RNA sequence: UGGGGCUGGGGAAGGGCUGCUGGGUGGUGGGGCCACUGGCCCAGCCGUGUUCCAGCCAGCCUCACCCGUGCCCAAGAGCAGCUCCCAGACAGGCGCCGUGCUGGGCCUCGUCCCGUGCAGUAACAGGUGUGAGCAUCCAUGAAGCAUUUUGAUGGUCAUGUAUGAUACUGCAUACAACA
Numbered sequence: 001u002g003g004g005g006c007u008g009g010g011g012a013a014g015g016g017c018u019g020c021u022g023g024g025u026g027g028u029g030g031g032g033c034c035a036c037u038g039g040c041c042c043a044g045c046c047g048u049g050u051u052c053c054a055g056c057c058a059g060c061c062u063c064a065c066c067c068g069u070g071c072c073c074a075a076g077a078g079c080a081g082c083u084c085c086c087a088g089a090c091a092g093g094c095g096c097c098g099u100g101c102u103g104g105g106c107c108u109c110g111u112c113c114c115g116u117g118c119a120g121u122a123a124c125a126g127g128u129g130u131g132a133g134c135a136u137c138c139a140u141g142a143a144g145c146a147u148u149u150u151g152a153u154g155g156u157c158a159u160g161u162a163u164g165a166u167a168c169u170g171c172a173u174a175c176a177a178c179a
Stems, first nucleotide, its partner, number of pairs: 003073004008067003015061004019056004024052001026046003030042001032040003084105003089099002115173008124164002130158003134154004141148002
Overview:
Shown here is a 179-nucleotide RNA sequence from Geococcyx californianus, a member of the family "Small Cajal body specific RNA 16". The family's RNA type in Rfam is small Cajal body RNA. On this family, see Darzacq et al., EMBO J 2002: "Cajal body-specific small nuclear RNAs: a novel class of 2'-O-methylation and pseudouridylation guide RNAs". Taxonomically the source falls in Geococcyx (Eukaryota, Teleostomi, Saurischia, Cuculiformes). Its family is annotated with RNA processing and nucleolus in the Gene Ontology. Rfam describes the family as follows. scaRNAs are a specific class of small nuclear RNAs which localise to the Cajal bodies and guide the modification of RNA polymerase II transcribed spliceosomal RNAs U1, U2, U4, U5 and U12. ACA47 belongs to the H/ACA box class of guide RNAs as it has the predicted hairpin-hinge-hairpin-tail structure, the conserved H/ACA-box motifs and is found associated with GAR1. ACA47 is predicted to guide the pseudouridylation of residue U5 of the U1 spliceosomal snRNA. Rfam 15.1 lists 790 matches to the family in 514 species. The base pairs follow the family's consensus structure, which was predicted with RNAfold.